The family of this 83-nucleotide sequence from Chrysochloris asiatica is "Small nucleolar RNA SNORD115".
The organism belongs to Chrysochloris, within Eukaryota.
Gene Ontology terms of the family: RNA processing and nucleolus.
The family's RNA type in Rfam is C/D-box small nucleolar RNA.
A reference for the family is Cavaille et al. (2000), "Identification of brain-specific and imprinted small nucleolar RNA genes exhibiting an unusual genomic organization", Proc Natl Acad Sci U S A.
RNA sequence: GGUUCAAUGAUAAAACUUAAGUAACUUGUCUUGAAAAGAGAUAAUAACUUAAAAAUCAUACACAUUAGGAUUAUGCUGAGGCC
Numbered sequence: 001g002g003u004u005c006a007a008u009g010a011u012a013a014a015a016c017u018u019a020a021g022u023a024a025c026u027u028g029u030c031u032u033g034a035a036a037a038g039a040g041a042u043a044a045u046a047a048c049u050u051a052a053a054a055a056u057c058a059u060a061c062a063c064a065u066u067a068g069g070a071u072u073a074u075g076c077u078g079a080g081g082c083c
Base pairs, nucleotide, nucleotide: 001083002082004081005078006077008075009074